Shown here is a 55-nucleotide RNA from Natronoarchaeum philippinense, a member of the family "eL15-Euryarchaeota ribosomal protein leader". Lineage of the source: Archaea > Methanobacteriati > Halobacteria > Halobacteriales > Natronoarchaeum. Pairs were carried over by alignment from the consensus structure, which is taken from published work.
RNA sequence: CCUGCCGACUCUUCGACAGGACGGAAUGUGGCCGGGCUGCCGGCUGAACCACGCA
Numbered sequence: 001c002c003u004g005c006c007g008a009c010u011c012u013u014c015g016a017c018a019g020g021a022c023g024g025a026a027u028g029u030g031g032c033c034g035g036g037c038u039g040c041c042g043g044c045u046g047a048a049c050c051a052c053g054c055a
Stems, first nucleotide, its partner, number of pairs: 001020004023050002030045005